[Rfam]
Shown here is a 151-nucleotide RNA from Desulfosporosinus orientis, a member of the family "FMN riboswitch aptamer (RFN element)".
The source organism's lineage runs through Bacteria, Bacillota, Desulfitobacteriaceae, Desulfosporosinus and Desulfosporosinus orientis.
RNA sequence: AUGAACCUUCGGGGCAAGGUGAAAUUCCUUACCGGCGGUGAUGAUUGCCCGUGCAAUUCAGCCCGCGACUCGGUGCAGCUAUUAAUGUUGCAUUGACUGACUUGGUGAAAUUCCAAGGCCGACGGUAUAGUCCGGACGAGAGAAGGUAAAA
Number, nucleotide and partner (000 for none) at each position: 001a000002u000003g000004a000005a147006c146007c145008u144009u143010c142011g000012g000013g000014g000015c000016a000017a029018g028019g027020u000021g000022a000023a000024a000025u000026u000027c019028c018029u017030u000031a131032c130033c121034g120035g066036c065037g064038g063039u000040g000041a000042u000043g000044a000045u000046u000047g000048c000049c000050c000051g000052u000053g000054c000055a000056a000057u000058u000059c000060a000061g119062c118063c038064c037065g036066c035067g000068a000069c000070u096071c095072g094073g093074u092075g000076c000077a000078g000079c000080u000081a000082u000083u000084a000085a000086u000087g000088u000089u000090g000091c000092a074093u073094u072095g071096a070097c000098u000099g000100a000101c117102u116103u115104g114105g113106u000107g000108a000109a000110a000111u000112u000113c105114c104115a103116a102117g101118g062119c061120c034121g033122a000123c134124g133125g132126u000127a000128u000129a000130g032131u031132c125133c124134g123135g000136a000137c000138g000139a000140g000141a000142g010143a009144a008145g007146g006147u005148a000149a000150a000151a000